[Rfam]
RNA: SAH (S-adenosyl-L-homocysteine) riboswitch aptamer
RNA sequence: GACUCCAAGGAGCGUUGCAGCACGGUGCCCGCCAUCGUGUCAGGCUUGGAUUCUUUGCAACGGCGCUCACGAACU
Number, nucleotide and partner (000 for none) at each position: 001g000002a052003c000004u050005c049006c048007a047008a046009g000010g000011a000012g000013c000014g000015u000016u000017g000018c000019a000020g000021c039022a038023c037024g036025g035026u034027g000028c000029c000030c000031g000032c000033c000034a026035u025036c024037g023038u022039g021040u000041c000042a000043g000044g000045c000046u008047u007048g006049g005050a004051u000052u002053c000054u000055u000056u000057g000058c000059a000060a000061c000062g000063g000064c000065g000066c000067u000068c000069a000070c000071g000072a000073a000074c000075u000